[Rfam]
RNA sequence: AAAAAAGUGAUGAAUAGAAGUAGUAAGAACAAUGAAACUUUCAGAGAGCUAAAGGAUGGUGUGAUUUAGUAGUUGAUAGUUCUGAACUUGUCUAGGAGCUGUUUUCUAAGAUUUAAAUCUUAGAAUAAUCGGAGUAAUUCCACGUUAUAGGAAAUAUAGUCAUUAUAAUUAUUGUAUUGGCUAUUACUAAGGGAGCUUUUUAGAAAGCUAAAUAGAGUGGUACCGCGAGCAAAACCUCGUCUCUAAU
Numbered sequence: 001a002a003a004a005a006a007g008u009g010a011u012g013a014a015u016a017g018a019a020g021u022a023g024u025a026a027g028a029a030c031a032a033u034g035a036a037a038c039u040u041u042c043a044g045a046g047a048g049c050u051a052a053a054g055g056a057u058g059g060u061g062u063g064a065u066u067u068a069g070u071a072g073u074u075g076a077u078a079g080u081u082c083u084g085a086a087c088u089u090g091u092c093u094a095g096g097a098g099c100u101g102u103u104u105u106c107u108a109a110g111a112u113u114u115a116a117a118u119c120u121u122a123g124a125a126u127a128a129u130c131g132g133a134g135u136a137a138u139u140c141c142a143c144g145u146u147a148u149a150g151g152a153a154a155u156a157u158a159g160u161c162a163u164u165a166u167a168a169u170u171a172u173u174g175u176a177u178u179g180g181c182u183a184u185u186a187c188u189a190a191g192g193g194a195g196c197u198u199u200u201u202a203g204a205a206a207g208c209u210a211a212a213u214a215g216a217g218u219g220g221u222a223c224c225g226c227g228a229g230c231a232a233a234a235c236c237u238c239g240u241c242u243c244u245a246a247u
Stems, first nucleotide, its partner, number of pairs: 007099002015094004026083005037073003048070006102128002104125005130144002194209006214244004225240005
Dot-bracket structure: ......((......((((.......(((((......(((........((((((...........))))))))).....))))).......))))...))..(((((((............))))).)).((...........)).................................................((((((....))))))....((((.......(((((......)))))))))...

This 247-nucleotide sequence from Clostridioides difficile belongs to the Rfam family "T-box leader". Rfam describes the family as follows. Uncharged tRNA acts as the effector for transcription antitermination of genes in the T-box leader family. T-boxes are found upstream of many aminoacyl-tRNA synthetase genes and some amino acid biosynthetic genes usually in Gram-positive bacteria. The anticodon of a specific tRNA base pairs to a specifier sequence within the T-box motif, and the NCCA acceptor tail of the tRNA base pairs to a conserved bulge in the T-box antiterminator hairpin. Rfam's curators put it in the seed alignment. Its family is annotated with tRNA binding in the Gene Ontology. The family's consensus secondary structure is taken from published work. Rfam 15.1 lists 19,395 matches to the family in 1,923 species.